[Rfam]
RNA sequence: UAAUAUACUGAGUGGCCAGAUUAUUAUGCUUUCAGAUAGCAUAAUAAUCUGGCCACUCAGUGUAGGU
Numbered sequence: 001u002a003a004u005a006u007a008c009u010g011a012g013u014g015g016c017c018a019g020a021u022u023a024u025u026a027u028g029c030u031u032u033c034a035g036a037u038a039g040c041a042u043a044a045u046a047a048u049c050u051g052g053c054c055a056c057u058c059a060g061u062g063u064a065g066g067u
Stems, first nucleotide, its partner, number of pairs: 004064014019049010
Description:
This 67-nucleotide RNA from Pipistrellus kuhlii belongs to the Rfam family "mir-9256 microRNA precursor family". Rfam links the family to the GO terms RISC complex and miRNA-mediated post-transcriptional gene silencing. NCBI's taxonomy places the organism under Eukaryota, Opisthokonta, Laurasiatheria, Chiroptera, Pipistrellus.